[Rfam]
Rfam assigns this 85-nucleotide RNA from Medicago truncatula to the family "MIR2617 microRNA precursor family".
RNA sequence: UAGCAGUGUAGCAUGCCCGUUUUGGUGACAAACUCUGAUUUAUUAUUAUAUUUAUAUUGUUGGGUUAACGGGGUGUUACAAUAUG
Dot-bracket structure: ..(.(.((((((((.((((((.............................................)))))))))))))).).).
It scores 51 bits against the family's covariance model. Gene Ontology terms of the family: RISC complex and miRNA-mediated post-transcriptional gene silencing.